Description: mir-1302 microRNA precursor family: a 52-nucleotide sequence from Cnephaeus nilssonii. Gene Ontology terms of the family: RISC complex and miRNA-mediated post-transcriptional gene silencing. The literature on the family includes a 2008 paper in Genome Res by Morin et al., "Application of massively parallel sequencing to microRNA profiling and discovery in human embryonic stem cells".

RNA sequence: UUUUUAGUACAAAUAUGUACCAUGCAAUAUUUGGAGCAUAUUUAUACUAAAA
Numbered sequence: 001u002u003u004u005u006a007g008u009a010c011a012a013a014u015a016u017g018u019a020c021c022a023u024g025c026a027a028u029a030u031u032u033g034g035a036g037c038a039u040a041u042u043u044a045u046a047c048u049a050a051a052a
Stems, first nucleotide, its partner, number of pairs: 006048004011043002014040003018036001020034002022031001
The source organism's lineage runs through Eukaryota, Eumetazoa, Chordata, Euteleostomi and Cnephaeus.